[Rfam]
RNA sequence: CGCUGUAAUGAUGAUUGGCAAAAUGUUCAACUGCUCUGAUGUACGUGAAUGAGUUCUGCCUUUCUGAACUGUU
Numbered sequence: 001c002g003c004u005g006u007a008a009u010g011a012u013g014a015u016u017g018g019c020a021a022a023a024u025g026u027u028c029a030a031c032u033g034c035u036c037u038g039a040u041g042u043a044c045g046u047g048a049a050u051g052a053g054u055u056c057u058g059c060c061u062u063u064c065u066g067a068a069c070u071g072u073u
Stems, first nucleotide, its partner, number of pairs: 002072002005069002

The record is a 73-nucleotide sequence from Synaphobranchus kaupii, which matches "Small nucleolar RNA Z40" in Rfam. Its family is annotated with nucleolus and RNA processing in the Gene Ontology. The family has 5 seed sequences and 615 matches in Rfam 15.1. A reference for the family is Chen et al. (2003), "The high diversity of snoRNAs in plants: identification and comparative study of 120 snoRNA genes from Oryza sativa", Nucleic Acids Res.